The family of this 102-nucleotide RNA sequence from Nyctereutes procyonoides is "mir-8904 microRNA precursor family".
It scores 97 bits against the family's covariance model.
The organism belongs to Nyctereutes, within Eukaryota.
Rfam 15.1 lists 207 matches to the family in 4 species.
Gene Ontology terms of the family: miRNA-mediated post-transcriptional gene silencing and RISC complex.
[Rfam]
RNA sequence: CCUCAUGCUCCCUGGGACAGUAACAGAGGAACUGCGCCCCGGGGAGAGUGCGCCAAGCUCCCUGAAGGGCUGCAGCACGCACGGUGGGACCCGGGAGCAUCU
Dot-bracket structure: ......((((((.((..(..(......(...((((((((.((((((..((...))..))))))...)))).))))..)....)...)..)).))))))....